[Rfam]
RNA sequence: UGGUCGGCAGUUCACCUAGGCAUCGCCGCUACGAAAAAUCGUAGAGCUAAACCUGCUG
Numbered sequence: 001u002g003g004u005c006g007g008c009a010g011u012u013c014a015c016c017u018a019g020g021c022a023u024c025g026c027c028g029c030u031a032c033g034a035a036a037a038a039u040c041g042u043a044g045a046g047c048u049a050a051a052c053c054u055g056c057u058g
Stems, first nucleotide, its partner, number of pairs: 002016003029044006
RNA: COG3860 RNA